[Rfam]
RNA sequence: AUGCAUCCAACAAGAAUUGAACUCGCAAAAUUAUCAAUUAUGGUUGGGCGCUUUAACCAUUCAGCCAUGGAUAC
Numbered sequence: 001a002u003g004c005a006u007c008c009a010a011c012a013a014g015a016a017u018u019g020a021a022c023u024c025g026c027a028a029a030a031u032u033a034u035c036a037a038u039u040a041u042g043g044u045u046g047g048g049c050g051c052u053u054u055a056a057c058c059a060u061u062c063a064g065c066c067a068u069g070g071a072u073a074c
Stems, first nucleotide, its partner, number of pairs: 003074001005072004011025001013023002040068009050058001
RNA: Plastid-ycf2 5UTR RNA